[Rfam]
RNA sequence: GGCUUCAACAACCCCGUAGGUCGGGCCCGUGAGGGCGGUGGAUCUACUGGAGCC
Numbered sequence: 001g002g003c004u005u006c007a008a009c010a011a012c013c014c015c016g017u018a019g020g021u022c023g024g025g026c027c028c029g030u031g032a033g034g035g036c037g038g039u040g041g042a043u044c045u046a047c048u049g050g051a052g053c054c
Stems, first nucleotide, its partner, number of pairs: 001054007013040001014038001016047007023039001025036004
RNA: nadA riboswitch